The family of this 369-nucleotide part of an RNA from Metallosphaera cuprina is "Archaeal large subunit ribosomal RNA".
The sequence is in the family's curated seed alignment.
The organism belongs to Metallosphaera cuprina, within Archaea.
RNA sequence: GGGGGGUAACUUAGGCUAGGGAACUCGGCAAAAUGGUCCCGUACCUUCGGAAGAAGGGAUGCCUACCAUUGUAGUAGCGCUGCAGUGGUAGGUCGCAGUGACCAGGGGGAUCUGACUAUUUAAUAAAAAUAUAGGUCCCCGCUAGCCCGAAAGGGUGUGAACGGGGGCUAAAUCCUGGCCACUGGUGGUCGGUUAAACCCGGGUCCAACCGGGCGAAGCCCCACUGAAGGCCGGGGGUAACUCUGACCCUCUCAAGGUAGCCAAAUGCCUUGCCGGGCAAGUUCCGGCGCGCAUGAAUGGAUCAACGUGAUCCCCACUGUCCCAGCCUAGGGCCCCAUGACCGCCCAGAGUGGGUUCACAGUCCCGCAA
Dot-bracket structure: ((((.....((((((((.(((..............(((((....(....).....)))))((((((((((((((.....))))))))))))))(...).......(((((((((..(((.........)))..(((((((((..((((....))))..)..))))))))..((((.(((..(((((((..(((....(((((......)))))....))))))))..)))))((((((.......))))))(...)...............((((((.....))))))..........))))...)).)))))))....))).)))))))).)))).............(((((........)))))..
Numbered sequence: 001g002g003g004g005g006g007u008a009a010c011u012u013a014g015g016c017u018a019g020g021g022a023a024c025u026c027g028g029c030a031a032a033a034u035g036g037u038c039c040c041g042u043a044c045c046u047u048c049g050g051a052a053g054a055a056g057g058g059a060u061g062c063c064u065a066c067c068a069u070u071g072u073a074g075u076a077g078c079g080c081u082g083c084a085g086u087g088g089u090a091g092g093u094c095g096c097a098g099u100g101a102c103c104a105g106g107g108g109g110a111u112c113u114g115a116c117u118a119u120u121u122a123a124u125a126a127a128a129a130u131a132u133a134g135g136u137c138c139c140c141g142c143u144a145g146c147c148c149g150a151a152a153g154g155g156u157g158u159g160a161a162c163g164g165g166g167g168c169u170a171a172a173u174c175c176u177g178g179c180c181a182c183u184g185g186u187g188g189u190c191g192g193u194u195a196a197a198c199c200c201g202g203g204u205c206c207a208a209c210c211g212g213g214c215g216a217a218g219c220c221c222c223a224c225u226g227a228a229g230g231c232c233g234g235g236g237g238u239a240a241c242u243c244u245g246a247c248c249c250u251c252u253c254a255a256g257g258u259a260g261c262c263a264a265a266u267g268c269c270u271u272g273c274c275g276g277g278c279a280a281g282u283u284c285c286g287g288c289g290c291g292c293a294u295g296a297a298u299g300g301a302u303c304a305a306c307g308u309g310a311u312c313c314c315c316a317c318u319g320u321c322c323c324a325g326c327c328u329a330g331g332g333c334c335c336c337a338u339g340a341c342c343g344c345c346c347a348g349a350g351u352g353g354g355u356u357c358a359c360a361g362u363c364c365c366g367c368a369a
Stems, first nucleotide, its partner, number of pairs: 001336004010331008019322003036060005045050001061093014094098001106315007113307002117131003134169008142159001145156004172302004177232003182229002184225005191220003198213005233251006252256001272288006350367005